This 87-nucleotide RNA from Dethiobacter alkaliphilus belongs to the Rfam family "c-di-GMP-I riboswitch aptamer".
NCBI's taxonomy places the organism under Bacteria, Bacillota, Dethiobacteraceae, Dethiobacter, Dethiobacter alkaliphilus.
RNA sequence: AGGUGAAAAAGGCAAACGUUCUGAAAGGAACGGGCGCAAAGCCACGGGUCUAAAGCCUUAAAAGGCCAUGAUAGCCGGGUUGCCCCA
Dot-bracket structure: ...........((...((((((....))))))...))..((((.((((((....((((....))))...)))..)))))))......
The match comes from Rfam's covariance-model search (88 bits). The base pairs follow the family's consensus structure, which is taken from published work.